[Rfam]
A member of the RNA family "FuFi-1 RNA", 223 nucleotides long.
RNA sequence: UCUAUCAGCUAUUGGCUUUAAACUUGCAGAACUAAAACUGCAUAAGUGAUAGGAUACCCUAUAGAAAGAGAAAGGCUAUUUUUUUCUAAGGUUUUUUAAAUCUCCCUUAUAAUUAAUUUUUGAGAGAAAUUUUGAGAGUUGAUUUAAGGAAAAAGAUUAAAAAACUUUUGCAAGGUAUAAAAAGUUAAAAAAUUUAGACAUUAAAGAUUAGAGAAUAGCCCUU
Numbered sequence: 001u002c003u004a005u006c007a008g009c010u011a012u013u014g015g016c017u018u019u020a021a022a023c024u025u026g027c028a029g030a031a032c033u034a035a036a037a038c039u040g041c042a043u044a045a046g047u048g049a050u051a052g053g054a055u056a057c058c059c060u061a062u063a064g065a066a067a068g069a070g071a072a073a074g075g076c077u078a079u080u081u082u083u084u085u086c087u088a089a090g091g092u093u094u095u096u097u098a099a100a101u102c103u104c105c106c107u108u109a110u111a112a113u114u115a116a117u118u119u120u121u122g123a124g125a126g127a128a129a130u131u132u133u134g135a136g137a138g139u140u141g142a143u144u145u146a147a148g149g150a151a152a153a154a155g156a157u158u159a160a161a162a163a164a165c166u167u168u169u170g171c172a173a174g175g176u177a178u179a180a181a182a183a184g185u186u187a188a189a190a191a192a193u194u195u196a197g198a199c200a201u202u203a204a205a206g207a208u209u210a211g212a213g214a215a216u217a218g219c220c221c222u223u
Stems, first nucleotide, its partner, number of pairs: 001053007025042005032197005054178005067087007074220007088168012211223003
It is one of the family's seed sequences.